[Rfam]
RNA sequence: CAGAUCAUUAUCGCCAUCCCCAGCAUGGCGGUAUAGGACAGCAUUUUGCAUCUCAACCCGCCCUGGAAGGCGGGUUUU
Dot-bracket structure: ..........(((((((.......))))))).......................((((((((......))))))))..
A member of the RNA family "Pseudomonas sRNA P9" from Gallaecimonas xiamenensis, 78 nucleotides long. This small RNA (sRNA) was computationally identified in the genome of the opportunistic pathogen Pseudomonas aeruginosa and its expression verified by northern blot analysis. P9 appears to be conserved in several Pseudomonas species in addition to Bordetella spp. In both Pseudomonas and Bordetella spp P9 appears to be located upstream of a predicted threonine dehydratase gene. The organism belongs to Gallaecimonas xiamenensis, within Bacteria. By type it is a non-coding RNA gene.